[Rfam]
RNA sequence: UGGGCUGGUCGCAACUGGCGUUGAGGUGGGGAACCACCGGGGAGCGACCGAACGACGGCAUUCGACCGCACGCCUGGGCCGAUGUA
Numbered sequence: 001u002g003g004g005c006u007g008g009u010c011g012c013a014a015c016u017g018g019c020g021u022u023g024a025g026g027u028g029g030g031g032a033a034c035c036a037c038c039g040g041g042g043a044g045c046g047a048c049c050g051a052a053c054g055a056c057g058g059c060a061u062u063c064g065a066c067c068g069c070a071c072g073c074c075u076g077g078g079c080c081g082a083u084g085u086a
Base pairs, nucleotide, nucleotide: 003053006050007049008048009047010046011045012044015041016040017074018073019072020071021070026037027036028035029034063081064080066078067077
Annotation: ZMP/ZTP riboswitch aptamer (pfl RNA motif): an 86-nucleotide RNA from Microbacterium sp. dk485. Its family is annotated with regulation of purine nucleotide biosynthetic process and one-carbon metabolic process in the Gene Ontology.